[Rfam]
RNA: F6 TB sRNA
Organism: Nocardia panacis
Nucleotides: 057
Base pairs, nucleotide, nucleotide: 003055004054007051008050009049010048011047012046013045014044016042017041018040019039020038021037022036
Number, partner (000 for none) and nucleotide at each position: 001000u002000g003055g004054g005000u006000u007051g008050c009049c010048c011047c012046g013045c014044g015000c016042a017041g018040u019039u020038g021037c022036c023000a024000g025000a026000c027000c028000c029000c030000c031000g032000a033000c034000c035000c036022g037021g038020c039019a040018a041017c042016u043000a044014c045013g046012c047011g048010g049009g050008g051007c052000u053000u054004u055003c056000a057000c